[Rfam]
RNA sequence: UGCCCCCUCGUUCAAUGGUAGGACAGCUGCCUCUGGAGCAGCCUAUCGGGGUUCGAAUCCCUGGGGGGCAA
Dot-bracket structure: (((((((..((((.......)))).(((((.......)))))....(((((.......)))))))))))).

tRNA: a 71-nucleotide sequence from Acidipila rosea.
The match comes from Rfam's covariance-model search (56 bits).
Transfer RNA (tRNA) molecules are approximately 80 nucleotides in length.
NCBI's taxonomy places the organism under Bacteria, Acidobacteriota, Terriglobales, Acidobacteriaceae, Acidipila.
Gene Ontology term of the family: triplet codon-amino acid adaptor activity.